RNA sequence: AUAAUCAACGAGAGUGCCAGCCUGCCGCGGAGGUCUAUGAGUGGUCUGCUGCUCCUCUCGUGGAGC
Numbered sequence: 001a002u003a004a005u006c007a008a009c010g011a012g013a014g015u016g017c018c019a020g021c022c023u024g025c026c027g028c029g030g031a032g033g034u035c036u037a038u039g040a041g042u043g044g045u046c047u048g049c050u051g052c053u054c055c056u057c058u059c060g061u062g063g064a065g066c
Base pairs, nucleotide, nucleotide: 005063006062007061010059011058012057013056014055018051019050020049021048024045025044026043027042028041031038
This 66-nucleotide sequence from Nematostella vectensis belongs to the Rfam family "mir-9440 microRNA precursor family". The organism belongs to Nematostella, within Eukaryota. Rfam links the family to the GO terms miRNA-mediated post-transcriptional gene silencing and RISC complex.